A member of the RNA family "RAGATH-18 RNA" from Cetobacterium ceti, 62 nucleotides long. Rfam's curators write: Actinobacteria, Firmicutes, Fusobacteria, Thermotogae (1 example). A search with the family's covariance model found it, with a score of 68 bits.
[Rfam]
RNA sequence: CCUUUGGAGUGUCAUAAGAAAUUGGAGUAGCUUAGGCAAAACAAGACACUGUGAAUAAGGAA
Numbered sequence: 001c002c003u004u005u006g007g008a009g010u011g012u013c014a015u016a017a018g019a020a021a022u023u024g025g026a027g028u029a030g031c032u033u034a035g036g037c038a039a040a041a042c043a044a045g046a047c048a049c050u051g052u053g054a055a056u057a058a059g060g061a062a
Base pairs, nucleotide, nucleotide: 001060002059003058004057009049010048011047012046013045022044023043024042030037031036